[Rfam]
RNA sequence: ACCAACAAACACGAGAGGAUGAUGGGUGACCGAUGAUUGAUUAAUCUUAUUUUUUCACGAAUUGAAAAGUCAUUUUCAACGCGUACAAAAUAGGAUUAGUCUGCCCAUUUUCAACUCAAACGGAAACGUAUACUUCUCGUUCAGAUGUAUGUGUCUUUCUGGUACGGCUAAUCCUUCCAAUUUAUUUUGGGAGGAUUUUUUU
Numbered sequence: 001a002c003c004a005a006c007a008a009a010c011a012c013g014a015g016a017g018g019a020u021g022a023u024g025g026g027u028g029a030c031c032g033a034u035g036a037u038u039g040a041u042u043a044a045u046c047u048u049a050u051u052u053u054u055u056c057a058c059g060a061a062u063u064g065a066a067a068a069g070u071c072a073u074u075u076u077c078a079a080c081g082c083g084u085a086c087a088a089a090a091u092a093g094g095a096u097u098a099g100u101c102u103g104c105c106c107a108u109u110u111u112c113a114a115c116u117c118a119a120a121c122g123g124a125a126a127c128g129u130a131u132a133c134u135u136c137u138c139g140u141u142c143a144g145a146u147g148u149a150u151g152u153g154u155c156u157u158u159c160u161g162g163u164a165c166g167g168c169u170a171a172u173c174c175u176u177c178c179a180a181u182u183u184a185u186u187u188u189g190g191g192a193g194g195a196u197u198u199u200u201u202u
Base pairs, nucleotide, nucleotide: 017112018111019110023107024106025105026104031099042098043097044096045095046094047093048092049091050090051089052088053087058081059080062079063078064077065076066075067074068073121161122160123159170197171196172195173194174193175192176191177190178189179188180187